DUF3800-VIII RNA: a 67-nucleotide sequence.
RNA sequence: GAAGCCCUGCUCUAUUCGAAGUCUUAAGUUCCACUUGAGAGGUUUAUGUAGAAUAGAACGGGGCUAC
Numbered sequence: 001g002a003a004g005c006c007c008u009g010c011u012c013u014a015u016u017c018g019a020a021g022u023c024u025u026a027a028g029u030u031c032c033a034c035u036u037g038a039g040a041g042g043u044u045u046a047u048g049u050a051g052a053a054u055a056g057a058a059c060g061g062g063g064c065u066a067c
Stems, first nucleotide, its partner, number of pairs: 001067001003065007011057003015053003022040008
The base pairs follow the family's consensus structure, which is taken from published work. It is one of the family's seed sequences.